This 151-nucleotide sequence from Panthera tigris belongs to the Rfam family "Wolbachia sRNA 46".
Pairs were carried over by alignment from the consensus structure.
Rfam 15.1 lists 237 matches to the family in 34 species.
The organism belongs to Panthera tigris, within Eukaryota.
The match comes from Rfam's covariance-model search (70 bits).

RNA sequence: UCUACAACCAUGGCACCAUCUAAUGGCCAUGCAGUGACUACCUUAUGGAUGCAGUGCAAUUUAUUUAUUAAAAAAAAAUUUUUUUUUAAUAAAUAAAUUGCACUGCAUCCAUAAGGUAGUCACUGCAUGGCCAUUAGAUGGUGCCAUGGUU
Numbered sequence: 001u002c003u004a005c006a007a008c009c010a011u012g013g014c015a016c017c018a019u020c021u022a023a024u025g026g027c028c029a030u031g032c033a034g035u036g037a038c039u040a041c042c043u044u045a046u047g048g049a050u051g052c053a054g055u056g057c058a059a060u061u062u063a064u065u066u067a068u069u070a071a072a073a074a075a076a077a078a079u080u081u082u083u084u085u086u087u088a089a090u091a092a093a094u095a096a097a098u099u100g101c102a103c104u105g106c107a108u109c110c111a112u113a114a115g116g117u118a119g120u121c122a123c124u125g126c127a128u129g130g131c132c133a134u135u136a137g138a139u140g141g142u143g144c145c146a147u148g149g150u151u
Base pairs, nucleotide, nucleotide: 011146012145013144014143015142024133025132026131027130028129029128030127031126032125033124034123035122036121037120038119039118040117041116042115043114044113045112046111047110048109049108050107051106052105053104054103